[Rfam]
RNA sequence: UAACUGGUGAAAGUCCAGUCUGAGUAAAUACCAAGAUGCUCAGUAGCUAUCAGGCAACUGGUGGAGAGAUCCUAAGGUUGAAGCCCUGUGAUAAAGUACCGACUUCACGUCGGGCGAGCAAACCAGCAGGUUGUAACAUCA
Number, nucleotide and partner (000 for none) at each position: 001u000002a000003a000004c000005u000006g000007g000008u000009g000010a000011a000012a000013g000014u000015c000016c000017a000018g000019u000020c043021u042022g041023a040024g039025u000026a000027a000028a000029u000030a000031c000032c000033a000034a000035g000036a000037u000038g000039c024040u023041c022042a021043g020044u000045a000046g000047c000048u000049a000050u000051c088052a087053g086054g085055c080056a079057a078058c077059u076060g000061g000062u000063g000064g071065a070066g000067a000068g000069a000070u065071c064072c000073u000074a000075a000076g059077g058078u057079u056080g055081a000082a000083g000084c000085c054086c053087u052088g051089u000090g000091a000092u000093a000094a000095a000096g115097u000098a000099c113100c112101g111102a110103c109104u000105u000106c000107a000108c000109g103110u102111c101112g100113g099114g000115c096116g000117a000118g134119c133120a132121a000122a000123c000124c000125a000126g000127c000128a000129g000130g000131u000132u120133g119134u118135a000136a000137c000138a000139u000140c000141a000